[Rfam]
RNA: Lysine riboswitch aptamer
Organism: Paenisporosarcina antarctica
RNA sequence: AGUGAGGAUAGAGGCGCAAACAUCAAUAGUAGACAAUUUGAGGAUAAUGAGAUCCUAUAAUGGUUGUUGAAAGGGAUAUUUGCCGAAGUAGAGAGAAUCUCAUGUUCUCAAAACUGGUUCUGUUAUUGAAUAAAUACGGAACUGUCAUAUAGGCAAACUAUAUGGAGGGCUAUCCACGCA
Numbered sequence: 001a002g003u004g005a006g007g008a009u010a011g012a013g014g015c016g017c018a019a020a021c022a023u024c025a026a027u028a029g030u031a032g033a034c035a036a037u038u039u040g041a042g043g044a045u046a047a048u049g050a051g052a053u054c055c056u057a058u059a060a061u062g063g064u065u066g067u068u069g070a071a072a073g074g075g076a077u078a079u080u081u082g083c084c085g086a087a088g089u090a091g092a093g094a095g096a097a098u099c100u101c102a103u104g105u106u107c108u109c110a111a112a113a114c115u116g117g118u119u120c121u122g123u124u125a126u127u128g129a130a131u132a133a134a135u136a137c138g139g140a141a142c143u144g145u146c147a148u149a150u151a152g153g154c155a156a157a158c159u160a161u162a163u164g165g166a167g168g169g170c171u172a173u174c175c176a177c178g179c180a
Base pairs, nucleotide, nucleotide: 006175007174008173009172010171011170016083017082018081019080020079022077023076024075032068033067034066035065036064037063038062087115088114089113093109094108095107096106097105098104116143117142118141119140120139121138122137124136125135126134127133145165146164147163148162149161150160151159